Description: Rfam assigns this 136-nucleotide RNA from Alligator mississippiensis to the family "Small Cajal body specific RNA 3". The family's RNA type in Rfam is small Cajal body RNA. Pairs were carried over by alignment from the consensus structure, which was predicted with RNAalifold.
[Rfam]
RNA sequence: ACUGGAAGCUGCAGGGACCAACCCUGUGGACAAAUAAAAUAUAUUUGUCUGCAAUUGCAGUCUUCCUAGAGUAAAGUGGAGGUUUCUGUCUGGUUUAGGACAGCUAGCUAAACCUGAUCGUUCCCCUCCACACAUU
Numbered sequence: 001a002c003u004g005g006a007a008g009c010u011g012c013a014g015g016g017a018c019c020a021a022c023c024c025u026g027u028g029g030a031c032a033a034a035u036a037a038a039a040u041a042u043a044u045u046u047g048u049c050u051g052c053a054a055u056u057g058c059a060g061u062c063u064u065c066c067u068a069g070a071g072u073a074a075a076g077u078g079g080a081g082g083u084u085u086c087u088g089u090c091u092g093g094u095u096u097a098g099g100a101c102a103g104c105u106a107g108c109u110a111a112a113c114c115u116g117a118u119c120g121u122u123c124c125c126c127u128c129c130a131c132a133c134a135u136u
Stems, first nucleotide, its partner, number of pairs: 004066003008061005025053007078129005086120001088118003092114007

NCBI's taxonomy places the organism under Eukaryota, Deuterostomia, Teleostomi, Dipnotetrapodomorpha, Alligator. Rfam's curators write: scaRNAs are a specific class of small nuclear RNAs which localise to the Cajal bodies and guide the modification of RNA polymerase II transcribed spliceosomal RNAs U1, U2, U4, U5 and U12. Gene Ontology terms of the family: nucleolus, Cajal body and RNA processing.